[Rfam]
RNA sequence: CAACUCUGGAAAGUAGGCGCACCCGCGCCUCGCCCACGGUGCAAACCUGCGCGUCUCGCGCCGGUGAAGCUCUCAGGCUCAUGACAGAGGGGGA
Numbered sequence: 001c002a003a004c005u006c007u008g009g010a011a012a013g014u015a016g017g018c019g020c021a022c023c024c025g026c027g028c029c030u031c032g033c034c035c036a037c038g039g040u041g042c043a044a045a046c047c048u049g050c051g052c053g054u055c056u057c058g059c060g061c062c063g064g065u066g067a068a069g070c071u072c073u074c075a076g077g078c079u080c081a082u083g084a085c086a087g088a089g090g091g092g093g094a
Stems, first nucleotide, its partner, number of pairs: 001092001004089005015030004032078003036073001039072001041070001045065002
RNA: Glycine riboswitch aptamer
Organism: Solihabitans fulvus